[Rfam]
RNA sequence: ACUGCCACGGAUGGCAGUGGUUCCAUGCAGUAGCGACGUUUUAAAAGCACAGCCGCUUUCAAGUGCUUUUAAAACUCGCAGGUUUCAUUUUGCCACGGAUGGCAAAAUGAAACCGUUG
Numbered sequence: 001a002c003u004g005c006c007a008c009g010g011a012u013g014g015c016a017g018u019g020g021u022u023c024c025a026u027g028c029a030g031u032a033g034c035g036a037c038g039u040u041u042u043a044a045a046a047g048c049a050c051a052g053c054c055g056c057u058u059u060c061a062a063g064u065g066c067u068u069u070u071a072a073a074a075c076u077c078g079c080a081g082g083u084u085u086c087a088u089u090u091u092g093c094c095a096c097g098g099a100u101g102g103c104a105a106a107a108u109g110a111a112a113c114c115g116u117u118g
Base pairs, nucleotide, nucleotide: 001018002017003016004015005014006013034078035077036076038075039074040073041072042071043070044069045068046067047066048065049064050063081114082113083112084111085110086109087108088107089106090105091104092103093102094101

A member of the RNA family "TD-2 RNA" from Treponema phagedenis, 118 nucleotides long. Lineage of the source: Bacteria > Pseudomonadati > Spirochaetota > Treponemataceae > Treponema. By type it is a small RNA.